[Rfam]
RNA sequence: AGGCCCCUCCUUCCCAGCCGGCUCCCGCUCACCCCUGCCACGUCAAAGGAGGCAGAAGGGGAGUCUGAGCAGAGCGGGGACCC
Numbered sequence: 001a002g003g004c005c006c007c008u009c010c011u012u013c014c015c016a017g018c019c020g021g022c023u024c025c026c027g028c029u030c031a032c033c034c035c036u037g038c039c040a041c042g043u044c045a046a047a048g049g050a051g052g053c054a055g056a057a058g059g060g061g062a063g064u065c066u067g068a069g070c071a072g073a074g075c076g077g078g079g080a081c082c083c
Base pairs, nucleotide, nucleotide: 002082003081004079005078006077007076009074012073013072021070022069023068025067027065028063029062030061032060033059034058035055036054037053038052039051041049
RNA: mir-3154 microRNA precursor family
Organism: Catagonus wagneri